[Rfam]
The family of this 39-nucleotide RNA sequence is "S4-Bacteroidia ribosomal protein leader". Pairs were carried over by alignment from the consensus structure, which is taken from published work. It is one of the family's seed sequences. The family's RNA type in Rfam is cis-regulatory leader. A reference for the family is Eckert and Weinberg (2020), "Discovery of 20 novel ribosomal leader candidates in bacteria and archaea", BMC Microbiol.

RNA sequence: GAUUACUCAAAGACCUUAUCCUCUCUGUAGUCGCGGCUG
Numbered sequence: 001g002a003u004u005a006c007u008c009a010a011a012g013a014c015c016u017u018a019u020c021c022u023c024u025c026u027g028u029a030g031u032c033g034c035g036g037c038u039g
Stems, first nucleotide, its partner, number of pairs: 001032006